[Rfam]
RNA sequence: GGCCGUCUCCCUUUACUCGGAUCGUCCGGCACGUUCCUGCCGGUGAAUGGAGCCACCA
Number, nucleotide and partner (000 for none) at each position: 001g000002g000003c000004c000005g000006u000007c000008u000009c050010c049011c000012u047013u046014u045015a044016c000017u000018c000019g000020g000021a000022u000023c000024g000025u000026c043027c042028g041029g040030c039031a038032c000033g000034u000035u000036c000037c000038u031039g030040c029041c028042g027043g026044u015045g014046a013047a012048u000049g010050g009051a000052g000053c000054c000055a000056c000057c000058a000
Shown here is a 58-nucleotide RNA from Actinorhabdospora filicis, a member of the family "msiK RNA". Rfam classes the family as a cis-regulatory element. The source organism's lineage runs through Bacteria, Actinomycetota, Micromonosporales, Micromonosporaceae and Actinorhabdospora.